The record is a 118-nucleotide RNA sequence from Pseudaminobacter salicylatoxidans, which matches "TPP riboswitch aptamer (THI element)" in Rfam. Rfam describes the family as follows. Vitamin B(1) in its active form thiamin pyrophosphate (TPP) is an essential coenzyme that is synthesised by coupling of pyrimidine and thiazole moieties in bacteria. The organism belongs to Pseudaminobacter, within Bacteria. The family's consensus secondary structure is taken from published work.
Nucleotides: 118
Base pairs, nucleotide, nucleotide: 007105008104009103010102011067012066013065014064017031018030019029020028021027038061039060040059041058042057073098074097075096076095079092080091081090082089
Number, partner (000 for none) and nucleotide at each position: 001000g002000g003000c004000c005000a006000u007105c008104a009103c010102c011067u012066g013065g014064g015000g016000a017031g018030c019029c020028c021027c022000g023000a024000c025000a026000a027021g028020g029019g030018g031017c032000u033000g034000a035000g036000a037000g038061a039060c040059u041058g042057c043000u044000g045000g046000c047000c048000g049000c050000g051000u052000g053000c054000a055000g056000c057042g058041c059040a060039g061038u062000g063000a064014c065013c066012c067011g068000u069000u070000g071000a072000a073098c074097c075096u076095g077000a078000u079092c080091c081090a082089g083000u084000u085000c086000a087000u088000a089082c090081u091080g092079g093000c094000g095076u096075a097074g098073g099000g100000a101000u102010g103009g104008u105007g106000c107000a108000a109000g110000g111000g112000c113000u114000c115000a116000u117000c118000g